[Rfam]
This 45-nucleotide RNA from Weissella viridescens belongs to the Rfam family "PreQ1 (pre queuosine) riboswitch aptamer". Rfam's curators write: This family is a bacterial riboswitch that binds to the metabolite preQ1, an intermediate in the biosynthesis of the modified nucleoside queuosine from GTP. One example of this riboswitch is located in the leader of the Bacillus subtilis ykvJKLM (queCDEF) operon which encodes four genes necessary for queuosine production. PreQ1 binding to the riboswitch aptamer is thought to induce premature transcription termination within the leader to down-regulate expression of these genes. Rfam links the family to the GO term queuosine biosynthetic process. The family has 43 seed sequences and 873 matches in Rfam 15.1. A reference for the family is Flemmich et al. (2021), "A natural riboswitch scaffold with self-methylation activity", Nat Commun.
RNA sequence: AAUCACGUGGUUCGUAACCAUCCCACGCAAAAAAACUAGGAGUCU
Numbered sequence: 001a002a003u004c005a006c007g008u009g010g011u012u013c014g015u016a017a018c019c020a021u022c023c024c025a026c027g028c029a030a031a032a033a034a035a036c037u038a039g040g041a042g043u044c045u
Stems, first nucleotide, its partner, number of pairs: 006027005015038002